This 82-nucleotide sequence from Marinobacter sp. B9-2 belongs to the Rfam family "Group II catalytic intron D1-D4-1".
From the family's description: Group II introns are found in rRNA, tRNA and mRNA of organelles in fungi, plants and protists, and also in mRNA in bacteria.
A search with the family's covariance model found it, with a score of 68 bits.
Lineage of the source: Bacteria > Pseudomonadati > Pseudomonadales > Marinobacteraceae > Marinobacter.
The literature on the family includes a 2001 paper in Trends Genet by Bonen and Vogel, "The ins and outs of group II introns".
The base pairs follow the family's consensus structure.
Gene Ontology term of the family: Group II intron splicing.

[Rfam]
RNA sequence: CUACUCAUCUCGUGAGAGAUGGGGAUGGAGGGCCAGAACUCAGCCGAGGUCAUAGUAGGUGCGUUACCGCGUACUGAAGGAC
Numbered sequence: 001c002u003a004c005u006c007a008u009c010u011c012g013u014g015a016g017a018g019a020u021g022g023g024g025a026u027g028g029a030g031g032g033c034c035a036g037a038a039c040u041c042a043g044c045c046g047a048g049g050u051c052a053u054a055g056u057a058g059g060u061g062c063g064u065u066a067c068c069g070c071g072u073a074c075u076g077a078a079g080g081a082c
Stems, first nucleotide, its partner, number of pairs: 001027001004023008039048003049082003058075006